This 48-nucleotide RNA sequence belongs to the Rfam family "chrB-b RNA".

RNA sequence: GCGGGCUCACGCGGACGCCCGGUCAGACGCUUGCCGUCCAAGCUCCGC
Numbered sequence: 001g002c003g004g005g006c007u008c009a010c011g012c013g014g015a016c017g018c019c020c021g022g023u024c025a026g027a028c029g030c031u032u033g034c035c036g037u038c039c040a041a042g043c044u045c046c047g048c
Base pairs, nucleotide, nucleotide: 002021003020004019005018006017011048012047013046014045015044026038027037028036029035

The sequence is in the family's curated seed alignment. Pairs were carried over by alignment from the consensus structure, which is taken from published work.